[Rfam]
RNA sequence: ACCAAAUUGUUCAACCAGUAUCAUUGGCUGUCUAUAACUCUCCAACUUAUAGACGGUCUCUCUAAUCUGGAAGAGAAAUCCUCGAACAACUUAAGUUCUGCUAUAGAAUGAAAGAAUUUUGCUCAAAAAGGCGAAGUUCCCACAUUAUCUAGCCCUAUUGUCGUUCAAACAUUA
Numbered sequence: 001a002c003c004a005a006a007u008u009g010u011u012c013a014a015c016c017a018g019u020a021u022c023a024u025u026g027g028c029u030g031u032c033u034a035u036a037a038c039u040c041u042c043c044a045a046c047u048u049a050u051a052g053a054c055g056g057u058c059u060c061u062c063u064a065a066u067c068u069g070g071a072a073g074a075g076a077a078a079u080c081c082u083c084g085a086a087c088a089a090c091u092u093a094a095g096u097u098c099u100g101c102u103a104u105a106g107a108a109u110g111a112a113a114g115a116a117u118u119u120u121g122c123u124c125a126a127a128a129a130g131g132c133g134a135a136g137u138u139c140c141c142a143c144a145u146u147a148u149c150u151a152g153c154c155c156u157a158u159u160g161u162c163g164u165u166c167a168a169a170c171a172u173u174a
Stems, first nucleotide, its partner, number of pairs: 015070004027057010084166004089161002100153004105148001107146003